[Rfam]
RNA sequence: GUCAGCAGUGCUCUAGCAGCACGUAAAUACUGGAGUUUAGGAUUGCCUAGCUGCUCUCCAGUAUUGCACUGCUGCUUCAGUGAGGCUGGA
Numbered sequence: 001g002u003c004a005g006c007a008g009u010g011c012u013c014u015a016g017c018a019g020c021a022c023g024u025a026a027a028u029a030c031u032g033g034a035g036u037u038u039a040g041g042a043u044u045g046c047c048u049a050g051c052u053g054c055u056c057u058c059c060a061g062u063a064u065u066g067c068a069c070u071g072c073u074g075c076u077u078c079a080g081u082g083a084g085g086c087u088g089g090a
Base pairs, nucleotide, nucleotide: 002089003088004087005086006085015076016075017074018073019072020071021070023069026065027064028063029062030061031060032059033058034057035056